[Rfam]
Nucleotides: 078
Base pairs, nucleotide, nucleotide: 001073002072003071004070006068007067008066023039024038025037027035028033050065051064052063053062054061055060
Number, partner (000 for none) and nucleotide at each position: 001073a002072a003071g004070a005000u006068a007067a008066g009000u010000g011000c012000u013000a014000u015000c016000c017000u018000u019000a020000a021000a022000u023039a024038g025037c026000c027035a028033a029000c030000a031000u032000a033028u034000u035027u036000u037025g038024c039023u040000u041000u042000c043000c044000g045000a046000g047000u048000a049000g050065u051064g052063c053062c054061u055060c056000a057000a058000u059000c060055g061054a062053g063052g064051c065050a066008c067007u068006u069000u070004u071003u072002u073001u074000a075000u076000g077000u078000a
Aggregatibacter sRNA 20: a 78-nucleotide sequence from Volucribacter psittacicida.
On this family, see Oogai et al., DNA Res 2017: "Small RNA repertoires and their intraspecies variation in Aggregatibacter actinomycetemcomitans".
From the family's description: Validated by RT-PCR and Northern blot.
It scores 80 bits against the family's covariance model.
Rfam classes the family as a small RNA.
Lineage of the source: Bacteria > Pseudomonadati > Pseudomonadota > Pasteurellaceae > Volucribacter.